Notes
The family of this 100-nucleotide RNA from Salinispora tropica is "Glycine riboswitch aptamer". Taxonomically the source falls in Salinispora tropica (Bacteria, Actinomycetota, Actinomycetes, Micromonosporaceae). This family represents the bacterial glycine riboswitch.
[Rfam]
RNA sequence: CGCACCCGUGUGGGAGAGACCGCCCGGAAACCACCCGGUGCGGCGCCGAAGGGGCAAAUCCUCCCCGGAACCUCUCAGGCAAAAGGACCUCACGGGUAGG
Numbered sequence: 001c002g003c004a005c006c007c008g009u010g011u012g013g014g015a016g017a018g019a020c021c022g023c024c025c026g027g028a029a030a031c032c033a034c035c036c037g038g039u040g041c042g043g044c045g046c047c048g049a050a051g052g053g054g055c056a057a058a059u060c061c062u063c064c065c066c067g068g069a070a071c072c073u074c075u076c077a078g079g080c081a082a083a084a085g086g087a088c089c090u091c092a093c094g095g096g097u098a099g100g
Base pairs, nucleotide, nucleotide: 006095007094008093009092010091012089013088020043021042022041023040045080046079047078048076049075052074053073054072059067